[Rfam]
Nucleotides: 101
Base pairs, nucleotide, nucleotide: 002017003016004015005014006013034061035060036059038058039057040056041055042054043053044052045051063097064096065094066093067092068091069090070089071088072087073086074085075084076083
Number, partner (000 for none) and nucleotide at each position: 001000u002017c003016c004015g005014g006013c007000a008000u009000g010000g011000a012000c013006g014005c015004c016003g017002g018000u019000a020000a021000a022000g023000c024000c025000g026000u027000a028000g029000a030000u031000a032000a033000u034061c035060g036059a037000u038058g039057u040056u041055u042054u043053g044052a045051g046000c047000a048000u049000c050000g051045c052044u053043c054042a055041a056040a057039a058038c059036u060035c061034g062000g063097g064096u065094u066093g067092a068091a069090a070089a071088g072087u073086g074085u075084a076083c077000a078000a079000g080000g081000a082000c083076g084075u085074g086073c087072a088071c089070u090069u091068u092067u093066c094065a095000a096064a097063c098000a099000a100000a101000c